About this RNA
This 119-nucleotide RNA from Sporomusa sphaeroides belongs to the Rfam family "Molybdenum/Tungsten riboswitch aptamer (Moco RNA motif)". Rfam 15.1 lists 1,248 matches to the family in 836 species. The match comes from Rfam's covariance-model search (65 bits).
[Rfam]
RNA sequence: AAUAAAUAUUUUCUUCGAGUCUGUGAAUCUAAGGCUGAAAAGCUAAGAUAGCUGACCGAUAGGGUAUUCCAGGAAACUGGAGCGCCUUCCUUGUGAAAAGAAGAAGCUUACACCGCCAA
Numbered sequence: 001a002a003u004a005a006a007u008a009u010u011u012u013c014u015u016c017g018a019g020u021c022u023g024u025g026a027a028u029c030u031a032a033g034g035c036u037g038a039a040a041a042g043c044u045a046a047g048a049u050a051g052c053u054g055a056c057c058g059a060u061a062g063g064g065u066a067u068u069c070c071a072g073g074a075a076a077c078u079g080g081a082g083c084g085c086c087u088u089c090c091u092u093g094u095g096a097a098a099a100g101a102a103g104a105a106g107c108u109u110a111c112a113c114c115g116c117c118a119a
Stems, first nucleotide, its partner, number of pairs: 011105006019056003023052002027049003033044004062087004067082006088096002